[Rfam]
RNA sequence: GACGACCUCGGAAGAGCGAUCCGAGUGUUGGCAGAACCCCUGUCUCCUGCGUGAGCGAUCGCGGGAGACACCGUUCUGUGCAACGGAAUUCUGAAGACACUUGGUGUGUUCGUAGGGAAACUACGUAACACGGCGAACGUAUGUUCACCGAUGCCGCAUCGCUCGGGAAGGACAGAGUUCUUCUCGCGGCCUCAGUAGCCUCC
Numbered sequence: 001g002a003c004g005a006c007c008u009c010g011g012a013a014g015a016g017c018g019a020u021c022c023g024a025g026u027g028u029u030g031g032c033a034g035a036a037c038c039c040c041u042g043u044c045u046c047c048u049g050c051g052u053g054a055g056c057g058a059u060c061g062c063g064g065g066a067g068a069c070a071c072c073g074u075u076c077u078g079u080g081c082a083a084c085g086g087a088a089u090u091c092u093g094a095a096g097a098c099a100c101u102u103g104g105u106g107u108g109u110u111c112g113u114a115g116g117g118a119a120a121c122u123a124c125g126u127a128a129c130a131c132g133g134c135g136a137a138c139g140u141a142u143g144u145u146c147a148c149c150g151a152u153g154c155c156g157c158a159u160c161g162c163u164c165g166g167g168a169a170g171g172a173c174a175g176a177g178u179u180c181u182u183c184u185c186g187c188g189g190c191c192u193c194a195g196u197a198g199c200c201u202c203c
Stems, first nucleotide, its partner, number of pairs: 003030004007025006031079007041070011147196002150193002153190005165185008